[Rfam]
RNA sequence: UAGGUGUAGUGAGUGGUUGCUUUUUAAAAGAGGAAAGUCCGAGCUGCAUUGAGAUAGGAUUCCAUUUAAAGAAUGGCUAGAGUAAUCUAAGGGAAAGCGCAACAGAAAGCAAACCGCCAAUUUUGGUAAGGGUGAAAGGGUGGAGUAAGAGCCCACCGGAGAUGUAGCAAUACAACUCGCAUUGCAAGCCCAAUCCGCAGCAAAAAGGGCAUGGUAAAAUCUCAAAUUUUAGCCCUUUGCUAGAUUUUUAAUGUAAAUUAAAAACAAGAUAAAUAACCACUUUUAACAGAACUCGGCUUACAGCUACACCUAAAAA
Numbered sequence: 001u002a003g004g005u006g007u008a009g010u011g012a013g014u015g016g017u018u019g020c021u022u023u024u025u026a027a028a029a030g031a032g033g034a035a036a037g038u039c040c041g042a043g044c045u046g047c048a049u050u051g052a053g054a055u056a057g058g059a060u061u062c063c064a065u066u067u068a069a070a071g072a073a074u075g076g077c078u079a080g081a082g083u084a085a086u087c088u089a090a091g092g093g094a095a096a097g098c099g100c101a102a103c104a105g106a107a108a109g110c111a112a113a114c115c116g117c118c119a120a121u122u123u124u125g126g127u128a129a130g131g132g133u134g135a136a137a138g139g140g141u142g143g144a145g146u147a148a149g150a151g152c153c154c155a156c157c158g159g160a161g162a163u164g165u166a167g168c169a170a171u172a173c174a175a176c177u178c179g180c181a182u183u184g185c186a187a188g189c190c191c192a193a194u195c196c197g198c199a200g201c202a203a204a205a206a207g208g209g210c211a212u213g214g215u216a217a218a219a220u221c222u223c224a225a226a227u228u229u230u231a232g233c234c235c236u237u238u239g240c241u242a243g244a245u246u247u248u249u250a251a252u253g254u255a256a257a258u259u260a261a262a263a264a265c266a267a268g269a270u271a272a273a274u275a276a277c278c279a280c281u282u283u284u285a286a287c288a289g290a291a292c293u294c295g296g297c298u299u300a301c302a303g304c305u306a307c308a309c310c311u312a313a314a315a316a
Stems, first nucleotide, its partner, number of pairs: 001312010011301001012281007020030004035299003039296005044200004057196005062076005077091001078089004092191002097189002099185003114131002116127004139157005158180001159178003163174004204238007216230005245264008
Bacterial RNase P class A: a 316-nucleotide sequence from Helicobacter valdiviensis. The base pairs follow the family's consensus structure, which is taken from published work. Ribonuclease P (RNase P) is a ubiquitous endoribonuclease, found in archaea, bacteria and eukarya as well as chloroplasts and mitochondria.